[Rfam]
The family of this 73-nucleotide sequence is "mir-1744 microRNA precursor family". Rfam links the family to the GO terms RISC complex and miRNA-mediated post-transcriptional gene silencing.
RNA sequence: GACACCCAGUGCUCUUCUGUUGAACUCAAGAGCAGAACCUGUGUUGACUUCAACAGGAGCAAGACUCAGGUCU
Number, nucleotide and partner (000 for none) at each position: 001g000002a071003c070004a000005c069006c000007c000008a066009g065010u064011g000012c000013u061014c000015u059016u058017c057018u055019g054020u053021u052022g051023a050024a049025c000026u047027c046028a045029a044030g000031a042032g000033c041034a000035g000036a000037a000038c000039c000040u000041g033042u031043g000044u029045u028046g027047a026048c000049u024050u023051c022052a021053a020054c019055a018056g000057g017058a016059g015060c000061a013062a000063g000064a010065c009066u008067c000068a000069g005070g003071u002072c000073u000